Record summary
Rfam assigns this 85-nucleotide sequence from Salmo trutta to the family "Small nucleolar RNA SNORD72". It is annotated as a C/D-box small nucleolar RNA. Rfam links the family to the GO terms nucleolus and RNA processing. Taxonomically the source falls in Salmo (Eukaryota, Vertebrata, Gnathostomata, Salmoninae). About the family: snoRNA HBII-240 belongs to the CD family of snoRNAs. A reference for the family is Huttenhofer et al. (2001), "RNomics: an experimental approach that identifies 201 candidates for novel, small, non-messenger RNAs in mouse", EMBO J. The base pairs follow the family's consensus structure.
[Rfam]
RNA sequence: UCUUUGUCAAUGAUGUUUUCUGUACAAAUGUCUGAACAUAUGAAUUUCAGUGAUUUUCUUAUAUAUUUUAAAACUGAGACAAGAG
Numbered sequence: 001u002c003u004u005u006g007u008c009a010a011u012g013a014u015g016u017u018u019u020c021u022g023u024a025c026a027a028a029u030g031u032c033u034g035a036a037c038a039u040a041u042g043a044a045u046u047u048c049a050g051u052g053a054u055u056u057u058c059u060u061a062u063a064u065a066u067u068u069u070a071a072a073a074c075u076g077a078g079a080c081a082a083g084a085g
Stems, first nucleotide, its partner, number of pairs: 001084002004082005